This 163-nucleotide RNA sequence from Catenibacillus scindens belongs to the Rfam family "Clostridiales-1 RNA". The match comes from Rfam's covariance-model search (127 bits). The source organism's lineage runs through Bacteria, Bacillati, Bacillota, Lachnospirales and Catenibacillus. Rfam classes the family as a small RNA.
RNA sequence: AGAUGCCAGGGUCAAAAGGUCAUGCGUUUCAUGCUUGCAUGAAAAAGCAUGACUUUGAGACCCGAAAAACAUGAGAAAGCAGCCAUUUUUCGAAGAAAAAUGAGCGAUUUCGAAUGUUUUUAGGAUUUCGAGAGCGCAAAGCGCGGAGAAAUCCGUGGCAUCA
Numbered sequence: 001a002g003a004u005g006c007c008a009g010g011g012u013c014a015a016a017a018g019g020u021c022a023u024g025c026g027u028u029u030c031a032u033g034c035u036u037g038c039a040u041g042a043a044a045a046a047g048c049a050u051g052a053c054u055u056u057g058a059g060a061c062c063c064g065a066a067a068a069a070c071a072u073g074a075g076a077a078a079g080c081a082g083c084c085a086u087u088u089u090u091c092g093a094a095g096a097a098a099a100a101u102g103a104g105c106g107a108u109u110u111c112g113a114a115u116g117u118u119u120u121u122a123g124g125a126u127u128u129c130g131a132g133a134g135c136g137c138a139a140a141g142c143g144c145g146g147a148g149a150a151a152u153c154c155g156u157g158g159c160a161u162c163a
Stems, first nucleotide, its partner, number of pairs: 002162006010062004016056010027045002029042005065121008075111004082105002084102008123154007134144004